[Rfam]
RNA sequence: UUCUGUUGUCCUUCAUUCCACCGGAGUCUGUCUCUACUAACCAGAUUUCAGUGGAGUGAAGCACAAGAGGCA
Number, nucleotide and partner (000 for none) at each position: 001u000002u000003c000004u000005g000006u000007u000008g000009u000010c000011c061012u060013u059014c058015a057016u056017u000018c000019c053020a052021c051022c000023g049024g048025a047026g046027u000028c044029u043030g042031u000032c000033u000034c000035u000036a000037c000038u000039a000040a000041c000042c030043a029044g028045a000046u026047u025048u024049c023050a000051g021052u020053g019054g000055a000056g016057u015058g014059a013060a012061g011062c000063a000064c000065a000066a000067g000068a000069g000070g000071c000072a000
The family of this 72-nucleotide RNA from Lonchura striata is "mir-205 microRNA precursor family".
NCBI's taxonomy places the organism under Eukaryota, Eumetazoa, Euteleostomi, Passeroidea, Lonchura.
Pairs were carried over by alignment from the consensus structure, which was predicted with RNAalifold.
The family has 44 seed sequences and 1,154 matches in Rfam 15.1.